Shown here is an 88-nucleotide RNA, a member of the family "DUF3800-VII RNA". The family's RNA type in Rfam is small RNA. The base pairs follow the family's consensus structure, which is taken from published work.
[Rfam]
RNA sequence: CGCAAGCAUGCGAGGAAUCAACCGAGGUCGUGCGUGAGCACGUCAGCCCCAUGCGGGUCGGAAGUCUCGGUCCUGGGCUUGCAAUUUU
Numbered sequence: 001c002g003c004a005a006g007c008a009u010g011c012g013a014g015g016a017a018u019c020a021a022c023c024g025a026g027g028u029c030g031u032g033c034g035u036g037a038g039c040a041c042g043u044c045a046g047c048c049c050c051a052u053g054c055g056g057g058u059c060g061g062a063a064g065u066c067u068c069g070g071u072c073c074u075g076g077g078c079u080u081g082c083a084a085u086u087u088u
Base pairs, nucleotide, nucleotide: 002082003081004080005079006078007077011075013074014073015072016071022070023069024068025067026066027044029042030041031040032039033038047057048056049055